[Rfam]
RNA sequence: UAAUUCCUUCGGGGCGGGGUGCAAUUCCCCACCGGCGGUAACGGCCCAAGGCCGAAGCCCGCGAAGCCUGGAAAUCAGCCGUACAUCCAGGCCCGACUCGGUGAGACUCCGAGGCCGACGGUCACAGUCCGGAUGAGAGAAGGAGCGA
Numbered sequence: 001u002a003a004u005u006c007c008u009u010c011g012g013g014g015c016g017g018g019g020u021g022c023a024a025u026u027c028c029c030c031a032c033c034g035g036c037g038g039u040a041a042c043g044g045c046c047c048a049a050g051g052c053c054g055a056a057g058c059c060c061g062c063g064a065a066g067c068c069u070g071g072a073a074a075u076c077a078g079c080c081g082u083a084c085a086u087c088c089a090g091g092c093c094c095g096a097c098u099c100g101g102u103g104a105g106a107c108u109c110c111g112a113g114g115c116c117g118a119c120g121g122u123c124a125c126a127g128u129c130c131g132g133a134u135g136a137g138a139g140a141a142g143g144a145g146c147g148a
Stems, first nucleotide, its partner, number of pairs: 004145007017029003031128002033117002035062004057115002066092005097113005119131003

The record is a 148-nucleotide RNA sequence from Meiothermus granaticius, which matches "FMN riboswitch aptamer (RFN element)" in Rfam.
Rfam links the family to the GO term FMN binding.
It scores 110 bits against the family's covariance model.
NCBI's taxonomy places the organism under Bacteria, Thermales, Thermaceae, Meiothermus, Meiothermus granaticius.